RNA: tRNA
RNA sequence: AAGGGAUUUGCUUAAUUGGUAUAGCAUUUGUUUUACACACAAAAUUAGUAUAGGUUCGAGUCCUAUAUUCCUUA
Numbered sequence: 001a002a003g004g005g006a007u008u009u010g011c012u013u014a015a016u017u018g019g020u021a022u023a024g025c026a027u028u029u030g031u032u033u034u035a036c037a038c039a040c041a042a043a044a045u046u047a048g049u050a051u052a053g054g055u056u057c058g059a060g061u062c063c064u065a066u067a068u069u070c071c072u073u074a
Stems, first nucleotide, its partner, number of pairs: 001073007010025003027043005050066005
Dot-bracket structure: (((((((..(((..........))).(((((.......)))))......(((((.......)))))))))))).